The record is a 58-nucleotide RNA from Perilla frutescens, which matches "Plastid-psbA-4 3UTR RNA" in Rfam. The family is grouped with related families in Rfam's "Plastid-psbA 3UTR RNA clan". Rfam's curators write: Plastid psbA-4 is a non-coding RNA (ncRNA) present in plastids.
RNA sequence: AAAAUGAAGGAGCAAUAAACCCCCUCUUGUUCUAUCAAAAGAAGGUUUAUUGCUCCUU
Numbered sequence: 001a002a003a004a005u006g007a008a009g010g011a012g013c014a015a016u017a018a019a020c021c022c023c024c025u026c027u028u029g030u031u032c033u034a035u036c037a038a039a040a041g042a043a044g045g046u047u048u049a050u051u052g053c054u055c056c057u058u
Stems, first nucleotide, its partner, number of pairs: 007058011021044001024041002027038003